A member of the RNA family "c-di-AMP riboswitch aptamer (ydaO/yuaA leader)" from Paenibacillus thalictri, 197 nucleotides long. A search with the family's covariance model found it, with a score of 88 bits. Rfam's curators write: This family represents a conserved RNA structure found upstream of the ydaO and yuaA genes in Bacillus subtilis and related genes in other bacteria.
RNA sequence: AUAAGCGAAUCGCUGAAUUUCUUCGUAGUGAAGAAAGCGGGGGAACCAAUGUGUCGUGAAGUGCCUGCGUGAAGAGCGGUAAACAUGACUUGGGGUGAAUCCGGUUGUGCGGAGCGAGUGGGCUCCGCCACACGGUAGGGCGACUCUCACCGUCCGAAUCCGACAGCUAACCUCGUAAGCAUAUGGAGAGAGAACCG
Numbered sequence: 001a002u003a004a005g006c007g008a009a010u011c012g013c014u015g016a017a018u019u020u021c022u023u024c025g026u027a028g029u030g031a032a033g034a035a036a037g038c039g040g041g042g043g044a045a046c047c048a049a050u051g052u053g054u055c056g057u058g059a060a061g062u063g064c065c066u067g068c069g070u071g072a073a074g075a076g077c078g079g080u081a082a083a084c085a086u087g088a089c090u091u092g093g094g095g096u097g098a099a100u101c102c103g104g105u106u107g108u109g110c111g112g113a114g115c116g117a118g119u120g121g122g123c124u125c126c127g128c129c130a131c132a133c134g135g136u137a138g139g140g141c142g143a144c145u146c147u148c149a150c151c152g153u154c155c156g157a158a159u160c161c162g163a164c165a166g167c168u169a170a171c172c173u174c175g176u177a178a179g180c181a182u183a184u185g186g187a188g189a190g191a192g193a194a195c196c197g
Base pairs, nucleotide, nucleotide: 012180013179014178018036019035020034021033022032023031024030025029037176038175039174040173041172042171047092048091093161094160095159101135102134103133138155139154140153141152